Small nucleolar RNA SNORA14: a 135-nucleotide RNA sequence from Carlito syrichta. It scores 154 bits against the family's covariance model. Rfam's curators write: ACA14 is a member of the H/ACA class of snoRNA that guide the sites of modification of uridines to pseudouridines. The family has 18 seed sequences and 848 matches in Rfam 15.1. The family's consensus secondary structure was predicted with RNAfold.
[Rfam]
RNA sequence: UUGCAUUCUUAAACCCUCUUGGUAGCUUUGCUCUAAAUGCUUCCAAGAUAUGAGUGAAUGCUAUAGUAAUUGCAGGGGAGUCCAAAGGACUGAGUUUCUUGUGUGGCUCAGUCUUAUUUCAUACCUGCAACAUCU
Numbered sequence: 001u002u003g004c005a006u007u008c009u010u011a012a013a014c015c016c017u018c019u020u021g022g023u024a025g026c027u028u029u030g031c032u033c034u035a036a037a038u039g040c041u042u043c044c045a046a047g048a049u050a051u052g053a054g055u056g057a058a059u060g061c062u063a064u065a066g067u068a069a070u071u072g073c074a075g076g077g078g079a080g081u082c083c084a085a086a087g088g089a090c091u092g093a094g095u096u097u098c099u100u101g102u103g104u105g106g107c108u109c110a111g112u113c114u115u116a117u118u119u120c121a122u123a124c125c126u127g128c129a130a131c132a133u134c135u
Base pairs, nucleotide, nucleotide: 003061004060005059006058008054009053010052011051017048018047019046020045021044022043024041025040026039065135066134070130071129072128073127074126075125076124086115087114088113089112090111091110092109094107095106098103